[Rfam]
This 123-nucleotide RNA sequence from Myotis lucifugus belongs to the Rfam family "Small nucleolar RNA SNORA26". From the family's description: The snoRNA HBI-6 belong to the H/ACA family of snoRNAs, guiding the pseudouridylation of position U4522 if the 28S rRNA. HBI-6 is the human orthologue of mouse MBI-6 snoRNA. The match comes from Rfam's covariance-model search (86 bits). The organism belongs to Myotis, within Eukaryota. The family is grouped with related families in Rfam's "SNORA27 clan". The family has 76 seed sequences and 1,943 matches in Rfam 15.1. Gene Ontology terms of the family: nucleolus and RNA processing. The base pairs follow the family's consensus structure, which was predicted with RNAalifold.
RNA sequence: AUAACUGAGAAAACAUACGCAGUGCCUUAAGGUGCUAACACAGAAGGGUAAAAAGUAAGUCUCGAUAAAACCCAGAGAAGAGAUGGUAAAACUCCUCUUUGGAUCCUGUCUGGAGUCACAGCC
Numbered sequence: 001a002u003a004a005c006u007g008a009g010a011a012a013a014c015a016u017a018c019g020c021a022g023u024g025c026c027u028u029a030a031g032g033u034g035c036u037a038a039c040a041c042a043g044a045a046g047g048g049u050a051a052a053a054a055g056u057a058a059g060u061c062u063c064g065a066u067a068a069a070a071c072c073c074a075g076a077g078a079a080g081a082g083a084u085g086g087u088a089a090a091a092c093u094c095c096u097c098u099u100u101g102g103a104u105c106c107u108g109u110c111u112g113g114a115g116u117c118a119c120a121g122c123c
Stems, first nucleotide, its partner, number of pairs: 002050002005047002016037002018034001020031001059117001061115003065111001072102007080094003084091001